This 77-nucleotide sequence from Pongo pygmaeus belongs to the Rfam family "mir-628 microRNA precursor family".
Nucleotides: 077
Stems, first nucleotide, its partner, number of pairs: 003075006012065004017060003021056013
Number, partner (000 for none) and nucleotide at each position: 001000c002000a003075c004074u005073u006072c007071c008070u009000c010000a011000u012065g013064c014063u015062g016000a017060c018059a019058u020000a021056u022055u023054u024053a025052c026051u027050a028049g029048a030047g031046g032045g033044u034000a035000a036000a037000a038000u039000u040000a041000a042000u043000a044033a045032c046031c047030u048029u049028c050027u051026a052025g053024u054023a055022a056021g057000a058019g059018u060017g061000g062015c063014a064013g065012u066000c067000g068000a069000a070008g071007g072006g073005a074004a075003g076000g077000g
Record summary
Taxonomically the source falls in Pongo (Eukaryota, Metazoa, Bilateria, Euarchontoglires).